[Rfam]
Overview
Rfam assigns this 117-nucleotide RNA from Pseudomonas sp. SSM44 to the family "ALIL pseudoknot".
RNA sequence: UGCGUUUUUCGCCCAGGCGGAGCUCGACCGCCGGCUGAAGUGAUCUACGCUCUGGUGGAUGGACACCGGGAUGCUUUUGGGGUCGAGCCAAUCUGCACGGUGCUGCAGAUUGCCCCG
Numbered sequence: 001u002g003c004g005u006u007u008u009u010c011g012c013c014c015a016g017g018c019g020g021a022g023c024u025c026g027a028c029c030g031c032c033g034g035c036u037g038a039a040g041u042g043a044u045c046u047a048c049g050c051u052c053u054g055g056u057g058g059a060u061g062g063a064c065a066c067c068g069g070g071a072u073g074c075u076u077u078u079g080g081g082g083u084c085g086a087g088c089c090a091a092u093c094u095g096c097a098c099g100g101u102g103c104u105g106c107a108g109a110u111u112g113c114c115c116c117g
Stems, first nucleotide, its partner, number of pairs: 016032005078117005089112002092109006

The literature on the family includes a 2008 paper in J Biol Chem by Mazauric et al., "Apical loop-internal loop RNA pseudoknots: a new type of stimulator of -1 translational frameshifting in bacteria". NCBI's taxonomy places the organism under Bacteria, Pseudomonadati, Pseudomonadota, Pseudomonadales, Pseudomonas. Pairs were carried over by alignment from the consensus structure, which is taken from published work. Gene Ontology term of the family: positive regulation of translational frameshifting.